The record is an 89-nucleotide sequence from Drosophila virilis, which matches "mir-304 microRNA precursor family" in Rfam.
Pairs were carried over by alignment from the consensus structure, which was predicted with RNAalifold.
A reference for the family is Ruby et al. (2007), "Evolution, biogenesis, expression, and target predictions of a substantially expanded set of Drosophila microRNAs", Genome Res.
RNA sequence: GCAGCAUUGAUUAAUCUCAAUUUGUAAAUGUGAGCGAUUUUAAAGUAUUUGACGCACUCACUUUGCAAUUGGAGAUUGCUCGAGAUUGC
Numbered sequence: 001g002c003a004g005c006a007u008u009g010a011u012u013a014a015u016c017u018c019a020a021u022u023u024g025u026a027a028a029u030g031u032g033a034g035c036g037a038u039u040u041u042a043a044a045g046u047a048u049u050u051g052a053c054g055c056a057c058u059c060a061c062u063u064u065g066c067a068a069u070u071g072g073a074g075a076u077u078g079c080u081c082g083a084g085a086u087u088g089c
Stems, first nucleotide, its partner, number of pairs: 001089004007083004012078007022068007030061005036055001039052001041051003